[Rfam]
RNA sequence: CAAAUGCGAUGAUGUGGAAGGUUGCUGACACACCCGGCCGCUUUGCCAUGGCGAGUGUCGUCAGGAUAUUUCCGCGGAGAAUGUCUAUUACGAAAAUAGGCGA
Numbered sequence: 001c002a003a004a005u006g007c008g009a010u011g012a013u014g015u016g017g018a019a020g021g022u023u024g025c026u027g028a029c030a031c032a033c034c035c036g037g038c039c040g041c042u043u044u045g046c047c048a049u050g051g052c053g054a055g056u057g058u059c060g061u062c063a064g065g066a067u068a069u070u071u072c073c074g075c076g077g078a079g080a081a082u083g084u085c086u087a088u089u090a091c092g093a094a095a096a097u098a099g100g101c102g103a
Base pairs, nucleotide, nucleotide: 014075015074016073019071020070021069025064026063027062028061029060082102083101084100085099086098087097088096089095
Annotation: Rfam assigns this 103-nucleotide sequence from Bacillus oleivorans to the family "S10-Clostridia ribosomal protein leader". The base pairs follow the family's consensus structure, which is taken from published work. On this family, see Eckert and Weinberg, BMC Microbiol 2020: "Discovery of 20 novel ribosomal leader candidates in bacteria and archaea". NCBI's taxonomy places the organism under Bacteria, Bacillota, Bacilli, Bacillaceae, Bacillus.